[Rfam]
RNA sequence: UGGUUCAAGGAGCGUUGCGACUCACCCCCGGGUGAGCCAGGCUUGAACAAGGGCAGGCACCGUGGGUGCCGCCCAGCAACGACGCUCACCGAAU
Dot-bracket structure: ..((((((............((((((....))))))......))))))..............................................

Record summary: The family of this 94-nucleotide RNA sequence from Paucibacter sp. KBW04 is "SAH (S-adenosyl-L-homocysteine) riboswitch aptamer". The match comes from Rfam's covariance-model search (53 bits). Taxonomically the source falls in Roseateles (Bacteria, Pseudomonadati, Pseudomonadota, Sphaerotilaceae).